[Rfam]
RNA: Guanidine-I riboswitch aptamer
Organism: Aminipila butyrica
RNA sequence: UAAAAAGUUUUAUAGGGUUCCGCAGCCUUAAUAUCCAGGGCUGGACUGGUCCGAGAUAAAACGUACAGCUUUGCUGUAUACACGGAAGGAUAAAAGCCUGGGAGAU
Numbered sequence: 001u002a003a004a005a006a007g008u009u010u011u012a013u014a015g016g017g018u019u020c021c022g023c024a025g026c027c028u029u030a031a032u033a034u035c036c037a038g039g040g041c042u043g044g045a046c047u048g049g050u051c052c053g054a055g056a057u058a059a060a061a062c063g064u065a066c067a068g069c070u071u072u073g074c075u076g077u078a079u080a081c082a083c084g085g086a087a088g089g090a091u092a093a094a095a096g097c098c099u100g101g102g103a104g105a106u
Base pairs, nucleotide, nucleotide: 007062008061009060010059011058012057015052016051020049021048022046023043024042025041026040027039028038063079064078065077066076067075068074069073081101083104087099088098089097